[Rfam]
RNA sequence: CAGUGAGGUAGAGGCGCGGUGUUUAACAGUCUUUAGCGGAGCUUGAGAAGCGAUGAUGCUAGGGAGAAGGAAAUAUCGCCGAAGCGGGCACAUAUAUCUCAGUAUUGCCUGCUGGGUCUGCAGUUAAGAGCUGCAGGACUGUCUCAAUGGGCUUCCCGGCUUAUUGAGUUGUGCUAUCUCAUUU
Numbered sequence: 001c002a003g004u005g006a007g008g009u010a011g012a013g014g015c016g017c018g019g020u021g022u023u024u025a026a027c028a029g030u031c032u033u034u035a036g037c038g039g040a041g042c043u044u045g046a047g048a049a050g051c052g053a054u055g056a057u058g059c060u061a062g063g064g065a066g067a068a069g070g071a072a073a074u075a076u077c078g079c080c081g082a083a084g085c086g087g088g089c090a091c092a093u094a095u096a097u098c099u100c101a102g103u104a105u106u107g108c109c110u111g112c113u114g115g116g117u118c119u120g121c122a123g124u125u126a127a128g129a130g131c132u133g134c135a136g137g138a139c140u141g142u143c144u145c146a147a148u149g150g151g152c153u154u155c156c157c158g159g160c161u162u163a164u165u166g167a168g169u170u171g172u173g174c175u176a177u178c179u180c181a182u183u184u
Stems, first nucleotide, its partner, number of pairs: 006179006016079009031064008083113008092105004114140002117137008143168009
RNA: Lysine riboswitch aptamer